Rfam assigns this 339-nucleotide sequence from Pullulanibacillus pueri to the family "Group I catalytic intron". On this family, see Cech, Annu Rev Biochem 1990: "Self-splicing of group I introns". The match comes from Rfam's covariance-model search (77 bits). Rfam's curators write: Group I catalytic introns are large self-splicing ribozymes. They catalyse their own excision from mRNA, tRNA and rRNA precursors in a wide range of organisms. The core secondary structure consists of 9 paired regions (P1-P9). These fold to essentially two domains - the P4-P6 domain (formed from the stacking of P5, P4, P6 and P6a helices) and the P3-P9 domain (formed from the P8, P3, P7 and P9 helices). The secondary structure mark-up for this family represents only this conserved core. Group I catalytic introns often have long ORFs inserted in loop regions. The window size for this search is chosen to minimise search time and catch the small examples. A larger window size will find more matches. Lineage of the source: Bacteria > Bacilli > Caryophanales > Sporolactobacillaceae > Pullulanibacillus.

RNA sequence: CAGAAGGCGUUUUACAACUUCUUCGGUAAGGAUUAAUAGGGCGUCUAGUAGGGUAACGUACUAGAGUAUAACUGGGUGAAUUGCUGGGAACUCCUUAGAGCCUUUCCUACGACAGCAAAGCCGGAAACGGCAAGUGUGAUCGUUGAAAAAGGAAGGAUUGGACAAUCAGCAGCCAAGCUCCUGUGACGAAAGUCUGGAGAAGGUUCAACGACUAGGAAACCACCUAAAGCGAUAGGCCAUGGUGAUGAAAUCCGUAGGGCGGUAAUAACCGUUCGAAGUGCCCAGCCCCAUUUAUUUAAUGGGUGAAGAUAUAGUCUGUUCCGGUAUCGAAAGAAUCGG
Numbered sequence: 001c002a003g004a005a006g007g008c009g010u011u012u013u014a015c016a017a018c019u020u021c022u023u024c025g026g027u028a029a030g031g032a033u034u035a036a037u038a039g040g041g042c043g044u045c046u047a048g049u050a051g052g053g054u055a056a057c058g059u060a061c062u063a064g065a066g067u068a069u070a071a072c073u074g075g076g077u078g079a080a081u082u083g084c085u086g087g088g089a090a091c092u093c094c095u096u097a098g099a100g101c102c103u104u105u106c107c108u109a110c111g112a113c114a115g116c117a118a119a120g121c122c123g124g125a126a127a128c129g130g131c132a133a134g135u136g137u138g139a140u141c142g143u144u145g146a147a148a149a150a151g152g153a154a155g156g157a158u159u160g161g162a163c164a165a166u167c168a169g170c171a172g173c174c175a176a177g178c179u180c181c182u183g184u185g186a187c188g189a190a191a192g193u194c195u196g197g198a199g200a201a202g203g204u205u206c207a208a209c210g211a212c213u214a215g216g217a218a219a220c221c222a223c224c225u226a227a228a229g230c231g232a233u234a235g236g237c238c239a240u241g242g243u244g245a246u247g248a249a250a251u252c253c254g255u256a257g258g259g260c261g262g263u264a265a266u267a268a269c270c271g272u273u274c275g276a277a278g279u280g281c282c283c284a285g286c287c288c289c290a291u292u293u294a295u296u297u298a299a300u301g302g303g304u305g306a307a308g309a310u311a312u313a314g315u316c317u318g319u320u321c322c323g324g325u326a327u328c329g330a331a332a333g334a335a336u337c338g339g
Base pairs, nucleotide, nucleotide: 005046006045007044008043009042010041011040012039013038051059072285073284074283075282077280078279082171083170084169085168086167087166092162093161094160172204173203179197180196185194186193187192208317210316211315212314213313214312287303288302289301290300291299292298324337327334328333